The record is a 91-nucleotide RNA from Hemsleya lijiangensis, which matches "Plastid-psbM 3UTR RNA" in Rfam. It is annotated as a cis-regulatory element. On this family, see Richter et al., Plant Commun 2023: "Retrograde signaling in plants: A critical review focusing on the GUN pathway and beyond". About the family: Plastid psbM is a non-coding RNA (ncRNA) recognised in plastids. It was found in the three prime untranslated region (3UTR) of psbM gene, its 3UTR location suggests a role in transcript maturation. It is one of the family's seed sequences. Taxonomically the source falls in Hemsleya (Eukaryota, Streptophyta, Mesangiospermae, Cucurbitales).
RNA sequence: GAUCCGAUAGUAUGGUAGAAAGAAAUAUAUGAAUCCUUCUACCAUACUAUCUAUUAUUGUUAUUCAAGUGUAUAAAAAUACAGGUUGAAUA
Numbered sequence: 001g002a003u004c005c006g007a008u009a010g011u012a013u014g015g016u017a018g019a020a021a022g023a024a025a026u027a028u029a030u031g032a033a034u035c036c037u038u039c040u041a042c043c044a045u046a047c048u049a050u051c052u053a054u055u056a057u058u059g060u061u062a063u064u065c066a067a068g069u070g071u072a073u074a075a076a077a078a079u080a081c082a083g084g085u086u087g088a089a090u091a
Base pairs, nucleotide, nucleotide: 006051007050008049009048010047011046012045013044014043015042016041017040018039019038020037022035023034